Shown here is a 144-nucleotide sequence from Eubacterium sp. CAG:146, a member of the family "Ribosomal protein L10 leader".
Lineage of the source: Bacteria > Bacillati > Bacillota > Clostridia > Eubacterium.
For this family Rfam cites "Diverse mechanisms for regulating ribosomal protein synthesis in Escherichia coli" (Zengel and Lindahl, Prog Nucleic Acid Res Mol Biol, 1994).
Pairs were carried over by alignment from the consensus structure, which was predicted with CMfinder.
It scores 86 bits against the family's covariance model.
RNA sequence: UAUACUAAAGUAUGAACGCCGAAGACAGCAGGUGCCGUAAGGCAUAAAGUGAGAACACCUGCCGAGGAAGUUAUAUUCAGAUAUUUUUAUUCUUAGAAUAUUUCUGCUCUUUGUCUUUGGACAGAGAGUUUUUUUAUUUCAUCG
Numbered sequence: 001u002a003u004a005c006u007a008a009a010g011u012a013u014g015a016a017c018g019c020c021g022a023a024g025a026c027a028g029c030a031g032g033u034g035c036c037g038u039a040a041g042g043c044a045u046a047a048a049g050u051g052a053g054a055a056c057a058c059c060u061g062c063c064g065a066g067g068a069a070g071u072u073a074u075a076u077u078c079a080g081a082u083a084u085u086u087u088u089a090u091u092c093u094u095a096g097a098a099u100a101u102u103u104c105u106g107c108u109c110u111u112u113g114u115c116u117u118u119g120g121a122c123a124g125a126g127a128g129u130u131u132u133u134u135u136a137u138u139u140c141a142u143c144g
Base pairs, nucleotide, nucleotide: 028062029061030060031059032058033057034043035042036041106129107128108127109126110125111124112123113122114121115120